[Rfam]
RNA sequence: UGCAAGCGUCAAGAGGGCGUUCGUGCCCGGCAACCUGGUUAUGCCUCCAAGGUGCCAAACCGACGCGGCCCCGCGGCCUCGGCCGCACGGGCAACAAAAGGCGGGCUU
Numbered sequence: 001u002g003c004a005a006g007c008g009u010c011a012a013g014a015g016g017g018c019g020u021u022c023g024u025g026c027c028c029g030g031c032a033a034c035c036u037g038g039u040u041a042u043g044c045c046u047c048c049a050a051g052g053u054g055c056c057a058a059a060c061c062g063a064c065g066c067g068g069c070c071c072c073g074c075g076g077c078c079u080c081g082g083c084c085g086c087a088c089g090g091g092c093a094a095c096a097a098a099a100g101g102c103g104g105g106c107u108u
Stems, first nucleotide, its partner, number of pairs: 006066005015028005029056003034052003037048002042103004068092004
Source information:
SAM-I/IV (S-adenosyl methionine) riboswitch aptamer: a 108-nucleotide sequence from Tepidiforma thermophila. The match comes from Rfam's covariance-model search (56 bits). The literature on the family includes a 2008 paper in RNA by Weinberg et al., "The aptamer core of SAM-IV riboswitches mimics the ligand-binding site of SAM-I riboswitches".